[Rfam]
The record is a 140-nucleotide RNA sequence from Catellatospora methionotrophica, which matches "c-di-AMP riboswitch aptamer (ydaO/yuaA leader)" in Rfam. Rfam links the family to the GO terms cyclic-di-AMP binding and regulation of gene expression.

RNA sequence: AUGAUCAAUACCCCUCGCGGGUGGGCGAACCGGGGACCCAGGUUAUCGGGGUGAAUCAGCGAUCACGCUCCGUGAUCGCAGUAGGGCGCCCUUCGCCCGAACCCGUCAGCUAACUCGGUAGGCGGCUGCGGAGAAGGGCC
Number, nucleotide and partner (000 for none) at each position: 001a000002u028003g026004a000005u000006c000007a000008a000009u000010a000011c000012c000013c000014c000015u000016c000017g000018c000019g000020g000021g000022u000023g000024g000025g000026c003027g000028a002029a119030c118031c117032g116033g115034g114035g000036a000037c000038c000039c048040a000041g000042g000043u000044u000045a000046u000047c000048g039049g104050g103051g102052u000053g000054a000055a000056u000057c081058a000059g079060c078061g077062a076063u075064c074065a000066c000067g000068c000069u000070c000071c000072g000073u000074g064075a063076u062077c061078g060079c059080a000081g057082u000083a000084g098085g097086g096087c095088g000089c000090c000091c000092u000093u000094c000095g087096c086097c085098c084099g000100a000101a000102c051103c050104c049105g000106u000107c000108a000109g000110c000111u000112a000113a000114c034115u033116c032117g031118g030119u029120a000121g000122g000123c000124g000125g000126c000127u000128g000129c000130g000131g000132a000133g000134a000135a000136g000137g000138g000139c000140c000